Shown here is a 57-nucleotide RNA sequence from Azorhizobium oxalatiphilum, a member of the family "nhaA-I RNA".
It is annotated as a riboswitch.
About the family: Acidobacteria, Alphaproteobacteria, Betaproteobacteria and Gammaproteobacteria, Verrucomicrobia, cand. division NC10.
It scores 47 bits against the family's covariance model.
The family's consensus secondary structure is taken from published work.
[Rfam]
RNA sequence: GGGUGUUCGUGUCCCGUCAAGGGCGAACAGGUUCAUGCAUUGGUCGGGCCGCCAGUG
Number, nucleotide and partner (000 for none) at each position: 001g000002g000003g000004u000005g028006u027007u026008c025009g024010u023011g000012u021013c000014c000015c000016g000017u000018c000019a000020a000021g012022g000023g010024c009025g008026a007027a006028c005029a000030g000031g000032u000033u000034c000035a000036u000037g000038c057039a056040u055041u054042g053043g052044u051045c000046g000047g000048g000049c000050c000051g044052c043053c042054a041055g040056u039057g038